[Rfam]
RNA sequence: CAGCCACAGAAUAGCUUAUUCUAUGGCCACCUGAAUUUACUACUGUUUUUACGAGAUUGUGGAUACAUAUUUAUGAUACAAGUGUGUUAUCAUAACAAGUGAUGAUAUUUACCAUCAUCUGAUAGUAAAUCACUUAAGGGUAGUGCAGUAAAUCUCUGCAUUUGUUAUGGUAACACACUUGUAUUAUAAAUAUGUAUCCACACUAUCGUAAAAUCAGUAGAAUCGUGAUAGUAAAUUCAGGUGGCCAUAGAAUAAGCUAUUCUGUGGCUG
Numbered sequence: 001c002a003g004c005c006a007c008a009g010a011a012u013a014g015c016u017u018a019u020u021c022u023a024u025g026g027c028c029a030c031c032u033g034a035a036u037u038u039a040c041u042a043c044u045g046u047u048u049u050u051a052c053g054a055g056a057u058u059g060u061g062g063a064u065a066c067a068u069a070u071u072u073a074u075g076a077u078a079c080a081a082g083u084g085u086g087u088u089a090u091c092a093u094a095a096c097a098a099g100u101g102a103u104g105a106u107a108u109u110u111a112c113c114a115u116c117a118u119c120u121g122a123u124a125g126u127a128a129a130u131c132a133c134u135u136a137a138g139g140g141u142a143g144u145g146c147a148g149u150a151a152a153u154c155u156c157u158g159c160a161u162u163u164g165u166u167a168u169g170g171u172a173a174c175a176c177a178c179u180u181g182u183a184u185u186a187u188a189a190a191u192a193u194g195u196a197u198c199c200a201c202a203c204u205a206u207c208g209u210a211a212a213a214u215c216a217g218u219a220g221a222a223u224c225g226u227g228a229u230a231g232u233a234a235a236u237u238c239a240g241g242u243g244g245c246c247a248u249a250g251a252a253u254a255a256g257c258u259a260u261u262c263u264g265u266g267g268c269u270g
Base pairs, nucleotide, nucleotide: 001270002269003268004267005266006265007264008263009262010261011260012259013258014257015256016255017254018253019252020251021250022249023248024247025246026245027244028243029242030241031240032239033238037234038233039232040220041219042218043217044216045215047213048212049211050210051209052208055207056206057205059203060202061201062199070190071189072188073187074186082182083181084180086178087177088172089171090170091169092168093167094166095165096164097163098162099161100160101159

Shown here is a 270-nucleotide RNA sequence from Dichanthelium oligosanthes, a member of the family "MIR6217 microRNA precursor family".
NCBI's taxonomy places the organism under Eukaryota, Spermatophyta, commelinids, Poaceae, Dichanthelium.